[Rfam]
RNA sequence: CUACUCUUGCACAGAAUCACCUUUCUAUAAUAACCAGUGCAAGAAGGGUUAUUAUACCA
Numbered sequence: 001c002u003a004c005u006c007u008u009g010c011a012c013a014g015a016a017u018c019a020c021c022u023u024u025c026u027a028u029a030a031u032a033a034c035c036a037g038u039g040c041a042a043g044a045a046g047g048g049u050u051a052u053u054a055u056a057c058c059a
Stems, first nucleotide, its partner, number of pairs: 007042006028054008
The family of this 59-nucleotide RNA sequence from Deltacoronavirus pycnonoti is "Coronavirus 3' UTR pseudoknot". The literature on the family includes a 1999 paper in J Virol by Williams et al., "A phylogenetically conserved hairpin-type 3' untranslated region pseudoknot functions in coronavirus RNA replication". The family's RNA type in Rfam is cis-regulatory element. The sequence is in the family's curated seed alignment. The base pairs follow the family's consensus structure, which is taken from published work. Coronaviruses are plus-strand RNA viruses with ~30kb genomes.